The family of this 73-nucleotide RNA sequence from Carpinus fangiana is "Small nucleolar RNA Z105". Pairs were carried over by alignment from the consensus structure, which was predicted with CMfinder. For this family Rfam cites "The high diversity of snoRNAs in plants: identification and comparative study of 120 snoRNA genes from Oryza sativa" (Chen et al., Nucleic Acids Res, 2003). The match comes from Rfam's covariance-model search (51 bits). It is annotated as a C/D-box small nucleolar RNA. Rfam links the family to the GO terms RNA processing and nucleolus.
RNA sequence: GCAUGGUGAUGAUGAAUUCAUAAAAUGUCCGAUUAAAUUCAUGACAGGAGACAAUACCUCCUACUCAUUCUGA
Numbered sequence: 001g002c003a004u005g006g007u008g009a010u011g012a013u014g015a016a017u018u019c020a021u022a023a024a025a026u027g028u029c030c031g032a033u034u035a036a037a038u039u040c041a042u043g044a045c046a047g048g049a050g051a052c053a054a055u056a057c058c059u060c061c062u063a064c065u066c067a068u069u070c071u072g073a
Stems, first nucleotide, its partner, number of pairs: 006068004028049002